[Rfam]
RNA sequence: GUUGCACAUUCGAGGUCAUAGUAGAAGCGCUCACGGUGCGGCCUGUAGGGUUCCACUGAAUCUCUGAAUUCUGCU
Numbered sequence: 001g002u003u004g005c006a007c008a009u010u011c012g013a014g015g016u017c018a019u020a021g022u023a024g025a026a027g028c029g030c031u032c033a034c035g036g037u038g039c040g041g042c043c044u045g046u047a048g049g050g051u052u053c054c055a056c057u058g059a060a061u062c063u064c065u066g067a068a069u070u071c072u073g074c075u
Stems, first nucleotide, its partner, number of pairs: 014043004020075007027039003048063006